[Rfam]
Rfam assigns this 184-nucleotide sequence from Aquicella lusitana to the family "FMN riboswitch aptamer (RFN element)".
A search with the family's covariance model found it, with a score of 110 bits.
The organism belongs to Aquicella, within Bacteria.
RNA sequence: CCUUAUCUUCGGGGCAGGGUGUAAUUCCCUACCGGCGGUAAUUUGCUAACUUAUUGAUAAUUAAUCGGUAGCAAAAAGCCCGCGAGCGCACUUUCAUGAGGCCAUUUUGCCCCAUGAGAGCUGGUCAGCAGAUUUGGUGCAAAUCCAGAGCCGACGGUUAAAGUCCGGAUGAAAGAAGAUAAGC
Numbered sequence: 001c002c003u004u005a006u007c008u009u010c011g012g013g014g015c016a017g018g019g020u021g022u023a024a025u026u027c028c029c030u031a032c033c034g035g036c037g038g039u040a041a042u043u044u045g046c047u048a049a050c051u052u053a054u055u056g057a058u059a060a061u062u063a064a065u066c067g068g069u070a071g072c073a074a075a076a077a078g079c080c081c082g083c084g085a086g087c088g089c090a091c092u093u094u095c096a097u098g099a100g101g102c103c104a105u106u107u108u109g110c111c112c113c114a115u116g117a118g119a120g121c122u123g124g125u126c127a128g129c130a131g132a133u134u135u136g137g138u139g140c141a142a143a144u145c146c147a148g149a150g151c152c153g154a155c156g157g158u159u160a161a162a163g164u165c166c167g168g169a170u171g172a173a174a175g176a177a178g179a180u181a182a183g184c
Stems, first nucleotide, its partner, number of pairs: 003182008017029003031164002033153002035083004078151002086129002133149005155167003